[Rfam]
RNA: ALIL pseudoknot
Organism: Parenemella sanctibonifatiensis
RNA sequence: GGCUUUCUUCGCGGCGGAGCUCGACCGCCCCAACAGGUCCUGAUCGACUUCAUCGCUGCCCAUAGAGAAGAGUUCGGGGUCGAGCCGAUCUGUCGCGUGCUGUCUGAGCACGGGAUCCAGAUCGCCCCA
Numbered sequence: 001g002g003c004u005u006u007c008u009u010c011g012c013g014g015c016g017g018a019g020c021u022c023g024a025c026c027g028c029c030c031c032a033a034c035a036g037g038u039c040c041u042g043a044u045c046g047a048c049u050u051c052a053u054c055g056c057u058g059c060c061c062a063u064a065g066a067g068a069a070g071a072g073u074u075c076g077g078g079g080u081c082g083a084g085c086c087g088a089u090c091u092g093u094c095g096c097g098u099g100c101u102g103u104c105u106g107a108g109c110a111c112g113g114g115a116u117c118c119a120g121a122u123c124g125c126c127c128c129a
Base pairs, nucleotide, nucleotide: 013029014028015027016026017025076128077127078126079125086124087123089121090120091119092118